[Rfam]
RNA sequence: AGCUCAAUUAAGAGGCAACUCUUAACUGGCCAACUGGGGAAAGGCCGAGAGGACCAAGCCCAGGGGGCAGAAAGCUUCGCGGAGUAGCGCUAAAAUCGUGAAGCGGGAGGCAUGGCGGUAGCGCCUACAACGACGUGCCAA
Numbered sequence: 001a002g003c004u005c006a007a008u009u010a011a012g013a014g015g016c017a018a019c020u021c022u023u024a025a026c027u028g029g030c031c032a033a034c035u036g037g038g039g040a041a042a043g044g045c046c047g048a049g050a051g052g053a054c055c056a057a058g059c060c061c062a063g064g065g066g067g068c069a070g071a072a073a074g075c076u077u078c079g080c081g082g083a084g085u086a087g088c089g090c091u092a093a094a095a096u097c098g099u100g101a102a103g104c105g106g107g108a109g110g111c112a113u114g115g116c117g118g119u120a121g122c123g124c125c126u127a128c129a130a131c132g133a134c135g136u137g138c139c140a141a
Stems, first nucleotide, its partner, number of pairs: 008025007026070003030067002034063005043054001045052002074104008087124005109139006116132002